[Rfam]
RNA: Guanidine-II riboswitch aptamer (mini-ykkC)
Organism: Gemmobacter fulvus
RNA sequence: CUGUGAGGACGACCUCCCCAAUCCGGGACCAUGGCGGGACGGCCCGC
Numbered sequence: 001c002u003g004u005g006a007g008g009a010c011g012a013c014c015u016c017c018c019c020a021a022u023c024c025g026g027g028a029c030c031a032u033g034g035c036g037g038g039a040c041g042g043c044c045c046g047c
Base pairs, nucleotide, nucleotide: 003018005016006015007014008013034047035046036045037044038043